[Rfam]
Nucleotides: 109
Stems, first nucleotide, its partner, number of pairs: 003107006013042004021031003026077003043070004048066002050062004074101001079098006
Number, partner (000 for none) and nucleotide at each position: 001000a002000a003107g004106u005105u006104a007103u008102c009000a010000c011000g012000a013042a014041a015040g016039g017000c018000g019000g020000a021031g022030g023029g024000a025000a026077a027076g028075a029023c030022c031021c032000a033000a034000u035000g036000a037000a038000a039016c040015c041014u042013u043070a044069g045068c046067a047000a048066c049065c050062c051061u052060u053059u054000a055000c056000c057000a058000u059053a060052a061051a062050g063000a064000a065049g066048g067046u068045g069044c070043u071000a072000c073000a074101u075028u076027c077026u078000a079098c080097u081096u082095a083094a084093u085000g086000u087000c088000a089000u090000g091000a092000u093084a094083u095082u096081a097080a098079g099000a100000u101074a102008g103007a104006u105005a106004a107003c108000g109000c
Annotation
Rfam assigns this 109-nucleotide RNA from Flavobacterium cheongpyeongense to the family "SAM riboswitch aptamer (S box leader)". The source organism's lineage runs through Bacteria, Pseudomonadati, Flavobacteriales, Flavobacteriaceae and Flavobacterium. The base pairs follow the family's consensus structure, which is taken from published work. Rfam links the family to the GO term regulation of gene expression.